[Rfam]
RNA sequence: UUCUUAUCCAGAGUGGCGGAGGGACUGGCCCGAUGAAGCCCGGCAACCUCGGUAUAUCCUUACCGGAAGGUGCCAAAUCCUGCAGUGCACAUGUAGCACUGAGAGAUAAGAA
Number, nucleotide and partner (000 for none) at each position: 001u112002u111003c110004u109005u108006a107007u106008c105009c000010a000011g000012a000013g041014u000015g040016g039017c038018g000019g000020a000021g031022g030023g029024a000025c082026u000027g080028g079029c023030c022031c021032g000033a000034u000035g000036a000037a000038g017039c016040c015041c013042g074043g073044c072045a071046a000047c070048c069049u066050c065051g064052g063053u000054a000055u000056a000057u000058c000059c000060u000061u000062a000063c052064c051065g050066g049067a000068a000069g048070g047071u045072g044073c043074c042075a000076a000077a000078u104079c028080c027081u000082g025083c101084a100085g099086u098087g097088c096089a000090c000091a000092u000093g000094u000095a000096g088097c087098a086099c085100u084101g083102a000103g000104a078105g008106a007107u006108a005109a004110g003111a002112a001
Shown here is a 112-nucleotide RNA from Laceyella tengchongensis, a member of the family "SAM riboswitch aptamer (S box leader)".
The source organism's lineage runs through Bacteria, Bacillati, Bacillota, Bacilli and Laceyella.
Rfam describes the family as follows. The SAM riboswitch is found upstream of a number of genes which code for proteins involved in methionine or cysteine biosynthesis in Gram-positive bacteria.